Source information:
The family of this 74-nucleotide RNA from Amborella trichopoda is "Small nucleolar RNA SNORD18". Rfam 15.1 lists 2,622 matches to the family in 960 species. Gene Ontology terms of the family: RNA processing and nucleolus. The source organism's lineage runs through Eukaryota, Viridiplantae, Streptophytina, Amborellaceae and Amborella. Pairs were carried over by alignment from the consensus structure, which was predicted with PFOLD. A reference for the family is Prislei et al. (1993), "Two different snoRNAs are encoded in introns of amphibian and human L1 ribosomal protein genes", Nucleic Acids Res.
RNA sequence: GGAAAGUGAUGAACAAAAUUGGUCCGUGUUUCUGAACUAUCCGUGACAGAAACCUAAACCACUUUUCUGAUUCC
Numbered sequence: 001g002g003a004a005a006g007u008g009a010u011g012a013a014c015a016a017a018a019u020u021g022g023u024c025c026g027u028g029u030u031u032c033u034g035a036a037c038u039a040u041c042c043g044u045g046a047c048a049g050a051a052a053c054c055u056a057a058a059c060c061a062c063u064u065u066u067c068u069g070a071u072u073c074c
Stems, first nucleotide, its partner, number of pairs: 001074004